[Rfam]
RNA sequence: UGGAAAUGAUGACUGUUAACUCAGAAUAAUUAUGGUGAAAUAACAUUUUAUAAGAUAGUCAAGUUCUGAUCCAG
Numbered sequence: 001u002g003g004a005a006a007u008g009a010u011g012a013c014u015g016u017u018a019a020c021u022c023a024g025a026a027u028a029a030u031u032a033u034g035g036u037g038a039a040a041u042a043a044c045a046u047u048u049u050a051u052a053a054g055a056u057a058g059u060c061a062a063g064u065u066c067u068g069a070u071c072c073a074g
Stems, first nucleotide, its partner, number of pairs: 001073004